[Rfam]
RNA sequence: AGCCAGCUGGGGUUCCUGGUGAUGCGAUUUUUUUACCCACUGCCCAAAAUCACAUUGCCAGGGAUUUCCAACUGGCU
Numbered sequence: 001a002g003c004c005a006g007c008u009g010g011g012g013u014u015c016c017u018g019g020u021g022a023u024g025c026g027a028u029u030u031u032u033u034u035a036c037c038c039a040c041u042g043c044c045c046a047a048a049a050u051c052a053c054a055u056u057g058c059c060a061g062g063g064a065u066u067u068c069c070a071a072c073u074g075g076c077u
Stems, first nucleotide, its partner, number of pairs: 001077002004074003010069002012065013026051005
Dot-bracket structure: ((.(((...(((((((((((((((.(((((................))))).)))))))))))))..))..))).))
This 77-nucleotide RNA sequence from Alligator mississippiensis belongs to the Rfam family "mir-23 microRNA precursor family". It scores 68 bits against the family's covariance model. Rfam 15.1 lists 1,403 matches to the family in 646 species. The base pairs follow the family's consensus structure, which was predicted with PFOLD. Taxonomically the source falls in Alligator (Eukaryota, Bilateria, Deuterostomia, Craniata).